The family of this 117-nucleotide RNA from Thalassotalea algicola is "Gammaprotebacteria rimP leader". Rfam links the family to the GO term regulation of gene expression. The family's consensus secondary structure is taken from published work. On this family, see Naville and Gautheret, Genome Biol 2010: "Premature terminator analysis sheds light on a hidden world of bacterial transcriptional attenuation".
RNA sequence: UUUAUUUGAUGAAUACAAAGGGCUCAGUGAAUAAAAGCCCCUUGUGUUGGGGCUUUUUUGUUUGUCGAAAUUAAGACAAACACAGCAAAUAUUCGCUGGGCUAUAUGCCCUUUUUUU
Numbered sequence: 001u002u003u004a005u006u007u008g009a010u011g012a013a014u015a016c017a018a019a020g021g022g023c024u025c026a027g028u029g030a031a032u033a034a035a036a037g038c039c040c041c042u043u044g045u046g047u048u049g050g051g052g053c054u055u056u057u058u059u060g061u062u063u064g065u066c067g068a069a070a071u072u073a074a075g076a077c078a079a080a081c082a083c084a085g086c087a088a089a090u091a092u093u094c095g096c097u098g099g100g101c102u103a104u105a106u107g108c109c110c111u112u113u114u115u116u117u
Stems, first nucleotide, its partner, number of pairs: 034057001035055007098110004